A member of the RNA family "BsrG" from Paraliobacillus ryukyuensis, 262 nucleotides long. Rfam links the family to the GO terms autolysis and toxin activity. Taxonomically the source falls in Paraliobacillus (Bacteria, Bacillati, Bacilli, Caryophanales).
[Rfam]
RNA sequence: GAUAACGCUUUCUUUUAGGGCAAGGUCGGCUAAUCCCCUCAAUGAAAGGGGGUGAUGCCUAUGAGUAUGUACGAAAGUUUUGUUGUGCUGUCUAGCUUUGGCACUUUCUUGGUUGCAUUACUCGCUUUGAUCAUUUCUUUGAUCAAUAGAAAAUAGACCUCCCUAUUUGCCCUGAUAAGUAAUUAGGAGAGGUCUAACGCUAUAGUUAGCCGAUCCCUCUGGGGGAACAGCUUAUCUAUAACCCGUAGUGACCACUACGGGU
Numbered sequence: 001g002a003u004a005a006c007g008c009u010u011u012c013u014u015u016u017a018g019g020g021c022a023a024g025g026u027c028g029g030c031u032a033a034u035c036c037c038c039u040c041a042a043u044g045a046a047a048g049g050g051g052g053u054g055a056u057g058c059c060u061a062u063g064a065g066u067a068u069g070u071a072c073g074a075a076a077g078u079u080u081u082g083u084u085g086u087g088c089u090g091u092c093u094a095g096c097u098u099u100g101g102c103a104c105u106u107u108c109u110u111g112g113u114u115g116c117a118u119u120a121c122u123c124g125c126u127u128u129g130a131u132c133a134u135u136u137c138u139u140u141g142a143u144c145a146a147u148a149g150a151a152a153a154u155a156g157a158c159c160u161c162c163c164u165a166u167u168u169g170c171c172c173u174g175a176u177a178a179g180u181a182a183u184u185a186g187g188a189g190a191g192g193u194c195u196a197a198c199g200c201u202a203u204a205g206u207u208a209g210c211c212g213a214u215c216c217c218u219c220u221g222g223g224g225g226a227a228c229a230g231c232u233u234a235u236c237u238a239u240a241a242c243c244c245g246u247a248g249u250g251a252c253c254a255c256u257a258c259g260g261g262u
Base pairs, nucleotide, nucleotide: 001236002235003234004233005232007231008230009229011227013213014212015175016174017173018172019171020170021169022168024158026156031055033053035051036050037049038048039047063125065123068120069119076091101116102115103114181201214226215225216224217223241262242261243260244259245258246257247256248255249254
Source information
Rfam 15.1 lists 614 matches to the family in 343 species. bsrE, bsrG and bsrH pair through intermolecular interactions with antisense sRNAs. They form type I toxin/antitoxin system that includes an mRNA encoding for a short, toxic peptide (bsrE, bsrG and bsrH) and an antitoxin that is comprised of an antisense RNA. bsrG encodes a 39-amino-acid toxin, and the 180 nucleotide antisense sRNA called SR4 acts as the antitoxin (they overlap by 123 nucleotides). SR4 interaction with the 3'UTR of bsrG RNA promotes bsrG degradation and inhibits its translation. BsrG interferes with cell envelope biosynthesis, causes membrane invaginations and delocalisation of the cell wall synthesis and initiates autolysis. bsrE RNA encodes 30 amino-acid toxin peptide. Its antitoxin gene, SR5 overlaps by 112 nucleotides at the 3' end of bsrE. SR5 also overlaps bsrG from nucleotide 163 to 52 (Rfam overlap check). The antitoxin SR5 promotes bsrE degradation but unlike SR4 it does not directly inhibits toxin mRNA translation.